[Rfam]
RNA sequence: AAAUAAAGUUUAAGUUCGCUGCAGAAAGUAGGUGCCGAAAGGCUUAAUAUCCUACCGAGGCGAAGGCAAAGUAUUUAUCAGGGUGAAUACAAGGCCUUUCUGUACCUCUGCAGAAAGGCCUUUUUGGUUUAUCAG
Numbered sequence: 001a002a003a004u005a006a007a008g009u010u011u012a013a014g015u016u017c018g019c020u021g022c023a024g025a026a027a028g029u030a031g032g033u034g035c036c037g038a039a040a041g042g043c044u045u046a047a048u049a050u051c052c053u054a055c056c057g058a059g060g061c062g063a064a065g066g067c068a069a070a071g072u073a074u075u076u077a078u079c080a081g082g083g084u085g086a087a088u089a090c091a092a093g094g095c096c097u098u099u100c101u102g103u104a105c106c107u108c109u110g111c112a113g114a115a116a117g118g119c120c121u122u123u124u125u126g127g128u129u130u131a132u133c134a135g
Stems, first nucleotide, its partner, number of pairs: 028055005034043003093120010
Background
Shown here is a 135-nucleotide RNA sequence from Fervidicola ferrireducens, a member of the family "Ribosomal protein L10 leader". A search with the family's covariance model found it, with a score of 72 bits. Lineage of the source: Bacteria > Bacillati > Bacillota > Clostridia > Fervidicola. Gene Ontology term of the family: regulation of gene expression.